[Rfam]
Shown here is a 114-nucleotide RNA from Helobdella robusta, a member of the family "Potassium channel RNA editing signal".
The family's RNA type in Rfam is cis-regulatory element.
It scores 82 bits against the family's covariance model.
RNA sequence: GACAGGUACGGGGACAUGACCCCAAAAACGGUGACGGGGAAGAUAGUUGGGGGCGUCUGUUCCCUGAGUGGGGUGCUCGUCAUCGCCCUGCCCGUCCCUGUCAUCGUGUCGAAC
Numbered sequence: 001g002a003c004a005g006g007u008a009c010g011g012g013g014a015c016a017u018g019a020c021c022c023c024a025a026a027a028a029c030g031g032u033g034a035c036g037g038g039g040a041a042g043a044u045a046g047u048u049g050g051g052g053g054c055g056u057c058u059g060u061u062c063c064c065u066g067a068g069u070g071g072g073g074u075g076c077u078c079g080u081c082a083u084c085g086c087c088c089u090g091c092c093c094g095u096c097c098c099u100g101u102c103a104u105c106g107u108g109u110c111g112a113a114c
Base pairs, nucleotide, nucleotide: 001114005110007108008107009106010105011104013102014101015100016099018097021094037077038076040074049063050062051061
The base pairs follow the family's consensus structure, which is taken from published work. About the family: This family represents a group of sequences related to the human potassium channel Kv1.1 hairpin element which directs the efficient modification of an adenosine to inosine by an adenosine deaminase acting on RNA (ADAR). The source organism's lineage runs through Eukaryota, Eumetazoa, Lophotrochozoa, Rhynchobdellida and Helobdella.